Shown here is a 111-nucleotide RNA from Cloacibacterium normanense, a member of the family "SAM riboswitch aptamer (S box leader)".

[Rfam]
RNA sequence: AUGUUAUCAAGAAAGGUGGAGAGAUUAGACUCUGUGAAACCUUGGCAACCUCUCGCGUUUCUGAAACGAGAAAAGGUGCUACAUUCUACUCAUUUUUGGGAUAGAUAACAC
Numbered sequence: 001a002u003g004u005u006a007u008c009a010a011g012a013a014a015g016g017u018g019g020a021g022a023g024a025u026u027a028g029a030c031u032c033u034g035u036g037a038a039a040c041c042u043u044g045g046c047a048a049c050c051u052c053u054c055g056c057g058u059u060u061c062u063g064a065a066a067c068g069a070g071a072a073a074a075g076g077u078g079c080u081a082c083a084u085u086c087u088a089c090u091c092a093u094u095u096u097u098g099g100g101a102u103a104g105a106u107a108a109c110a111c
Stems, first nucleotide, its partner, number of pairs: 002110007013043005021032003026088004044080004049076002051071004084103001089100004

The source organism's lineage runs through Bacteria, Bacteroidota, Flavobacteriia, Flavobacteriales and Cloacibacterium.